The record is a 128-nucleotide sequence from Clupea harengus, which matches "Small nucleolar RNA SNORD22" in Rfam. The base pairs follow the family's consensus structure, which was predicted with PFOLD. The match comes from Rfam's covariance-model search (63 bits). The family's RNA type in Rfam is C/D-box small nucleolar RNA. Gene Ontology terms of the family: nucleolus and RNA processing.
RNA sequence: UCAUUAUGAUAAACUUGCAUAUGUCUUACACCCAGUGUCUACUCCAGAACCUGAAAAGGUGAACCCACUGGAGUUGCCUGGGUAAGCAAGGAGAUGACUUGGUGGGGUUACCAACUGUCUGACGUGGC
Numbered sequence: 001u002c003a004u005u006a007u008g009a010u011a012a013a014c015u016u017g018c019a020u021a022u023g024u025c026u027u028a029c030a031c032c033c034a035g036u037g038u039c040u041a042c043u044c045c046a047g048a049a050c051c052u053g054a055a056a057a058g059g060u061g062a063a064c065c066c067a068c069u070g071g072a073g074u075u076g077c078c079u080g081g082g083u084a085a086g087c088a089a090g091g092a093g094a095u096g097a098c099u100u101g102g103u104g105g106g107g108u109u110a111c112c113a114a115c116u117g118u119c120u121g122a123c124g125u126g127g128c
Base pairs, nucleotide, nucleotide: 001127002126003125004124